[Rfam]
A member of the RNA family "Small nucleolar RNA SNORD113/SNORD114 family" from Crocuta crocuta, 74 nucleotides long. The source organism's lineage runs through Eukaryota, Tetrapoda, Laurasiatheria, Feliformia and Crocuta. Rfam links the family to the GO terms nucleolus and RNA processing. The family's consensus secondary structure is taken from published work. On this family, see Cavaille et al., Hum Mol Genet 2002: "Identification of tandemly-repeated C/D snoRNA genes at the imprinted human 14q32 domain reminiscent of those at the Prader-Willi/Angelman syndrome region". By type it is a C/D-box small nucleolar RNA.
RNA sequence: UGGACCAUGAUGACCACUGGUGAUGUAUGAAUCAUGGAUGAUGAAUAUUACGUGUCUGAAACUCUGAGGUCCAA
Numbered sequence: 001u002g003g004a005c006c007a008u009g010a011u012g013a014c015c016a017c018u019g020g021u022g023a024u025g026u027a028u029g030a031a032u033c034a035u036g037g038a039u040g041a042u043g044a045a046u047a048u049u050a051c052g053u054g055u056c057u058g059a060a061a062c063u064c065u066g067a068g069g070u071c072c073a074a
Base pairs, nucleotide, nucleotide: 002072003071004070005069006068